[Rfam]
RNA sequence: UCACCUCGCAGCGGGAGAGCACCGGUUCAGCCAGAACCGGGCGCCGAAGGAGCAACACCUCCCCGGAAACUCUCAGGCAUCCCUACCGCGCGAGCAGG
Numbered sequence: 001u002c003a004c005c006u007c008g009c010a011g012c013g014g015g016a017g018a019g020c021a022c023c024g025g026u027u028c029a030g031c032c033a034g035a036a037c038c039g040g041g042c043g044c045c046g047a048a049g050g051a052g053c054a055a056c057a058c059c060u061c062c063c064c065g066g067a068a069a070c071u072c073u074c075a076g077g078c079a080u081c082c083c084u085a086c087c088g089c090g091c092g093a094g095c096a097g098g
Base pairs, nucleotide, nucleotide: 006093007092008091009090011089012088013087014086022040023039024038025037026036043078044077045076046074047073050072051071052070056065
RNA: Glycine riboswitch aptamer
Organism: Streptomyces boluensis